[Rfam]
RNA sequence: UUGCUGGUCAACGGCAGGGUUUGAAGGAAGCGAUAGGAAGUUAACAGUACACAACGAAAGUGAACCUGAUUCGGCAAUUUAGGUGGGUAAGCGUGCAAAAUAGCGUGAAGCCCGAUACUCAAUCAGACCUAGAUUGUGCUUGAGGGUGGCAUUGUUAACAGGGAGCCAGU
Numbered sequence: 001u002u003g004c005u006g007g008u009c010a011a012c013g014g015c016a017g018g019g020u021u022u023g024a025a026g027g028a029a030g031c032g033a034u035a036g037g038a039a040g041u042u043a044a045c046a047g048u049a050c051a052c053a054a055c056g057a058a059a060g061u062g063a064a065c066c067u068g069a070u071u072c073g074g075c076a077a078u079u080u081a082g083g084u085g086g087g088u089a090a091g092c093g094u095g096c097a098a099a100a101u102a103g104c105g106u107g108a109a110g111c112c113c114g115a116u117a118c119u120c121a122a123u124c125a126g127a128c129c130u131a132g133a134u135u136g137u138g139c140u141u142g143a144g145g146g147u148g149g150c151a152u153u154g155u156u157a158a159c160a161g162g163g164a165g166c167c168a169g170u
Base pairs, nucleotide, nucleotide: 001017002016003015004014005013006012030170031169042157043156044155045154046153047152050148051147052146065145066144067143069141074137075136076135078133079132080131081130082129083128084127085113086112087111088110091106092105093104094103
Rfam assigns this 170-nucleotide sequence from Vibrio tapetis to the family "Group II catalytic intron D1-D4-3".
Gene Ontology term of the family: Group II intron splicing.
The match comes from Rfam's covariance-model search (61 bits).